[Rfam]
RNA sequence: AAACUUACCUGGCGGGGAGGCGUCCUGCGAUCAUCAAGGCAGGACCUCCAGGGUGAGGCUGGACCAUUGCACUUUAGGGACGGCUGACCUCUGUGGCAGUUCCGAACUGGAAUUGGCCAACCGCGAAAUUUUUGCGUAUGGGGAUAGCGUUCGCGCUUCCCUC
Numbered sequence: 001a002a003a004c005u006u007a008c009c010u011g012g013c014g015g016g017g018a019g020g021c022g023u024c025c026u027g028c029g030a031u032c033a034u035c036a037a038g039g040c041a042g043g044a045c046c047u048c049c050a051g052g053g054u055g056a057g058g059c060u061g062g063a064c065c066a067u068u069g070c071a072c073u074u075u076a077g078g079g080a081c082g083g084c085u086g087a088c089c090u091c092u093g094u095g096g097c098a099g100u101u102c103c104g105a106a107c108u109g110g111a112a113u114u115g116g117c118c119a120a121c122c123g124c125g126a127a128a129u130u131u132u133u134g135c136g137u138a139u140g141g142g143g144a145u146a147g148c149g150u151u152c153g154c155g156c157u158u159c160c161c162u163c
Stems, first nucleotide, its partner, number of pairs: 012124004016049005024043005050092004055088001057085003061081001064078002094119003097115003101111002140163004146157004
Notes:
U1 spliceosomal RNA: a 163-nucleotide RNA sequence from Plectus sambesii. The family's consensus secondary structure is taken from published work. The family's RNA type in Rfam is spliceosomal small nuclear RNA. The organism belongs to Plectus, within Eukaryota.